[Rfam]
RNA sequence: UGCUAUCGAAGGAUUAAUUAGACCUUAAUUCAUAGCUUA
Dot-bracket structure: ((((((.(((((..........))))....))))))..)

The family of this 39-nucleotide RNA sequence is "S4-Flavobacteria ribosomal protein leader". It is annotated as a cis-regulatory leader. On this family, see Eckert and Weinberg, BMC Microbiol 2020: "Discovery of 20 novel ribosomal leader candidates in bacteria and archaea". It is one of the family's seed sequences.